[Rfam]
RNA: Group II catalytic intron D1-D4-3
Organism: Desulfobacteraceae bacterium
RNA sequence: GUUUCCGUGAGGAAAGGUCUGAAGGAAGCCCGAGUGCAAAGCUAUGAACCGACGAACAGAAACAGCAUAUAAGGCCCAGUCUCCGGGUAAGUUAGCACAACAUAACGAAGCCCCGGAUUCAGGAGAUAGGGUAAAUGCUGCGGUUGUGUAGCGAAAGUUCACGUU
Numbered sequence: 001g002u003u004u005c006c007g008u009g010a011g012g013a014a015a016g017g018u019c020u021g022a023a024g025g026a027a028g029c030c031c032g033a034g035u036g037c038a039a040a041g042c043u044a045u046g047a048a049c050c051g052a053c054g055a056a057c058a059g060a061a062a063c064a065g066c067a068u069a070u071a072a073g074g075c076c077c078a079g080u081c082u083c084c085g086g087g088u089a090a091g092u093u094a095g096c097a098c099a100a101c102a103u104a105a106c107g108a109a110g111c112c113c114c115g116g117a118u119u120c121a122g123g124a125g126a127u128a129g130g131g132u133a134a135a136u137g138c139u140g141c142g143g144u145u146g147u148g149u150a151g152c153g154a155a156a157g158u159u160c161a162c163g164u165u
Stems, first nucleotide, its partner, number of pairs: 002015005028165001030163001036158002041152006047145005063140006074132003079127006085113004091106004